[Rfam]
Overview: U2 spliceosomal RNA: a 193-nucleotide RNA from Nematostella vectensis. It is one of the family's seed sequences. Clan: U2 clan. The family's RNA type in Rfam is spliceosomal small nuclear RNA.
RNA sequence: AUCGCUUCUCGGCCUUUUGGCUAAGAUCAAGUGUAGUAUCUGUUCUUAUCAGCUUAAUAUCUGAUACGCUGCUCAUUGAGUAGCUCAUAUAUUAAACUGAUUUUUGGAAACUGGCUGUGGAAUAAGCGGCUUGCUGCGUCCCAGCCACGGGUUGUCUCGGUAUUGCACUACCUCCGAGUACGGCCCCCUUCCC
Numbered sequence: 001a002u003c004g005c006u007u008c009u010c011g012g013c014c015u016u017u018u019g020g021c022u023a024a025g026a027u028c029a030a031g032u033g034u035a036g037u038a039u040c041u042g043u044u045c046u047u048a049u050c051a052g053c054u055u056a057a058u059a060u061c062u063g064a065u066a067c068g069c070u071g072c073u074c075a076u077u078g079a080g081u082a083g084c085u086c087a088u089a090u091a092u093u094a095a096a097c098u099g100a101u102u103u104u105u106g107g108a109a110a111c112u113g114g115c116u117g118u119g120g121a122a123u124a125a126g127c128g129g130c131u132u133g134c135u136g137c138g139u140c141c142c143a144g145c146c147a148c149g150g151g152u153u154g155u156c157u158c159g160g161u162a163u164u165g166c167a168c169u170a171c172c173u174c175c176g177a178g179u180a181c182g183g184c185c186c187c188c189u190u191c192c193c
Stems, first nucleotide, its partner, number of pairs: 007026003011022004047066006068084007113146005119140002126137004149186006156178005